[Rfam]
RNA sequence: UGGAGGAACAACCCCAGUUACAGAGCCAGCUCUGGAGCCCUGGAUUCAGCUCCCGCAGUAACUACGGAGCUCUCAGUCUGCAGGGGCCUGGAUGCUCCUGGGACGG
Numbered sequence: 001u002g003g004a005g006g007a008a009c010a011a012c013c014c015c016a017g018u019u020a021c022a023g024a025g026c027c028a029g030c031u032c033u034g035g036a037g038c039c040c041u042g043g044a045u046u047c048a049g050c051u052c053c054c055g056c057a058g059u060a061a062c063u064a065c066g067g068a069g070c071u072c073u074c075a076g077u078c079u080g081c082a083g084g085g086g087c088c089u090g091g092a093u094g095c096u097c098c099u100g101g102g103a104c105g106g
Base pairs, nucleotide, nucleotide: 002098003097004096005095007093009090010089012086013085014084020077021076023074024073025072028071029070030069031068032067033066034065036063040058041057042056

A member of the RNA family "mir-8834 microRNA precursor family" from Vulpes vulpes, 106 nucleotides long. NCBI's taxonomy places the organism under Eukaryota, Opisthokonta, Deuterostomia, Euteleostomi, Vulpes. Rfam links the family to the GO terms miRNA-mediated post-transcriptional gene silencing and RISC complex. The base pairs follow the family's consensus structure, which was predicted with RNAalifold.